[Rfam]
RNA sequence: GGAGGCGUCCGUGUUCCUGGUGGGCACCCCGGUCUUCAAAACCGGUGAGACCGAGUAGCUCGGUCUGGCGGGUUCGAUUCCCGUCCGCCUCC
Numbered sequence: 001g002g003a004g005g006c007g008u009c010c011g012u013g014u015u016c017c018u019g020g021u022g023g024g025c026a027c028c029c030c031g032g033u034c035u036u037c038a039a040a041a042c043c044g045g046u047g048a049g050a051c052c053g054a055g056u057a058g059c060u061c062g063g064u065c066u067g068g069c070g071g072g073u074u075c076g077a078u079u080c081c082c083g084u085c086c087g088c089c090u091c092c
Stems, first nucleotide, its partner, number of pairs: 001092007011027005017022001029045005048066005069083004

Selenocysteine transfer RNA: a 92-nucleotide sequence from Kocuria coralli. Rfam 15.1 lists 4,211 matches to the family in 3,344 species. The source organism's lineage runs through Bacteria, Actinomycetota, Actinomycetes, Micrococcales and Kocuria. The base pairs follow the family's consensus structure, which is taken from published work.